RNA sequence: GAGUAUUUGACAGACUGUGGUUGACACUCGAUCUAAAGGGGUGUCAGUUUGUCAAAUACC
Numbered sequence: 001g002a003g004u005a006u007u008u009g010a011c012a013g014a015c016u017g018u019g020g021u022u023g024a025c026a027c028u029c030g031a032u033c034u035a036a037a038g039g040g041g042u043g044u045c046a047g048u049u050u051g052u053c054a055a056a057u058a059c060c
Stems, first nucleotide, its partner, number of pairs: 003059014023045004028040002